[Rfam]
RNA sequence: GCCUCUAAUGAUGAUCAAAACAUAACUUUCGUUCUUCCGAGAUUUAUUAUGCGGAAUCUAUAUGGAGACCUGAACUGAAGAGGU
Numbered sequence: 001g002c003c004u005c006u007a008a009u010g011a012u013g014a015u016c017a018a019a020a021c022a023u024a025a026c027u028u029u030c031g032u033u034c035u036u037c038c039g040a041g042a043u044u045u046a047u048u049a050u051g052c053g054g055a056a057u058c059u060a061u062a063u064g065g066a067g068a069c070c071u072g073a074a075c076u077g078a079a080g081a082g083g084u
Stems, first nucleotide, its partner, number of pairs: 003082004